[Rfam]
Nucleotides: 151
Stems, first nucleotide, its partner, number of pairs: 003056006009049001013045004018040001020038003024031001083143001085141001087139001096132002101128002105124003109120001
Number, partner (000 for none) and nucleotide at each position: 001000g002000a003056u004055u005054u006053g007052a008051u009049g010000u011000c012000a013045u014044g015043c016042c017000u018040u019000c020038a021037a022036u023000a024031g025000c026000u027000u028000u029000u030000u031024c032000a033000u034000u035000g036022a037021u038020u039000g040018a041000u042016g043015g044014u045013g046000c047000u048000a049009u050000u051008g052007u053006c054005a055004g056003g057000c058000c059000a060000a061000u062000a063000a064000a065000a066000a067000g068000u069000u070000c071000u072000u073000u074000a075000u076000u077000g078000g079000c080000u081000u082000u083143u084000c085141g086000u087139u088000g089000g090000c091000u092000g093000a094000u095000u096132g097131g098000a099000a100000u101128c102127g103000u104000u105124g106123g107122a108000a109120a110000a111000g112000u113000u114000u115000u116000u117000a118000u119000c120109u121000a122107u123106u124105c125000a126000u127102c128101g129000u130000g131097c132096u133000g134000u135000u136000u137000a138000c139087g140000u141085c142000a143083a144000u145000u146000a147000c148000a149000u150000u151000u
The family of this 151-nucleotide sequence from Zingiber officinale is "Small nucleolar RNA snoR2/U65". A search with the family's covariance model found it, with a score of 57 bits. Rfam classes the family as an H/ACA-box small nucleolar RNA.